Rfam assigns this 75-nucleotide RNA sequence from Bambusicola thoracicus to the family "mir-460 microRNA precursor family". For this family Rfam cites "Identification of microRNAs from different tissues of chicken embryo and adult chicken" (Xu et al., FEBS Lett, 2006). Gene Ontology terms of the family: miRNA-mediated post-transcriptional gene silencing and RISC complex. It scores 75 bits against the family's covariance model. Rfam 15.1 lists 1,029 matches to the family in 498 species.
RNA sequence: CUCUACGUUGUCCUCAUUGUACAUGCUGUGUGUAUUUGCCGCGUACACAGCGCAUGCAAUGUGGACAUAGUGGAG
Numbered sequence: 001c002u003c004u005a006c007g008u009u010g011u012c013c014u015c016a017u018u019g020u021a022c023a024u025g026c027u028g029u030g031u032g033u034a035u036u037u038g039c040c041g042c043g044u045a046c047a048c049a050g051c052g053c054a055u056g057c058a059a060u061g062u063g064g065a066c067a068u069a070g071u072g073g074a075g
Stems, first nucleotide, its partner, number of pairs: 012064002015061007024052001026050006